Source information:
A member of the RNA family "Glycine riboswitch aptamer" from Magnetospirillum aberrantis, 105 nucleotides long. The organism belongs to Magnetospirillum aberrantis, within Bacteria. Gene Ontology term of the family: glycine biosynthetic process.

[Rfam]
RNA sequence: CUCUGGAAAGUGGCGCGGGGUCUUUGGCUCUUGCGCCCACCGACGAUGUAAGUCGGUCACCGGCAUUACCGGCGGCCGAUGAAUCUUUCAGGUUCCGAGACAGAG
Numbered sequence: 001c002u003c004u005g006g007a008a009a010g011u012g013g014c015g016c017g018g019g020g021u022c023u024u025u026g027g028c029u030c031u032u033g034c035g036c037c038c039a040c041c042g043a044c045g046a047u048g049u050a051a052g053u054c055g056g057u058c059a060c061c062g063g064c065a066u067u068a069c070c071g072g073c074g075g076c077c078g079a080u081g082a083a084u085c086u087u088u089c090a091g092g093u094u095c096c097g098a099g100a101c102a103g104a105g
Stems, first nucleotide, its partner, number of pairs: 001105005012037009039093003042089002046087001048085001052080007

Overview:
This family represents the bacterial glycine riboswitch. It scores 39 bits against the family's covariance model.